Rfam assigns this 100-nucleotide RNA from Brassica napus to the family "MIR6032 microRNA precursor family".
Nucleotides: 100
Base pairs, nucleotide, nucleotide: 002099003098004097005096006095008093009092010091011090013089014088015087016086017085018084019083020082021081022080023078024077025076026075028073029072030071031070032069033068034067035066037064038063039062040059041058044055045054046053
Number, partner (000 for none) and nucleotide at each position: 001000u002099u003098a004097u005096u006095u007000u008093g009092u010091u011090u012000u013089a014088a015087c016086a017085u018084g019083g020082a021081g022080c023078a024077u025076c026075a027000a028073c029072a030071g031070a032069u033068c034067u035066c036000g037064g038063a039062g040059c041058a042000u043000g044055u045054a046053a047000g048000a049000u050000c051000u052000g053046u054045u055044g056000u057000u058041u059040g060000u061000c062039c063038u064037c065000g066035g067034g068033g069032a070031u071030c072029u073028g074000c075026u076025g077024g078023u079000c080022g081021u082020u083019c084018c085017a086016u087015g088014u089013u090011a091010a092009a093008c094000u095006a096005a097004a098003u099002a100000a
The family's consensus secondary structure was predicted with RNAalifold.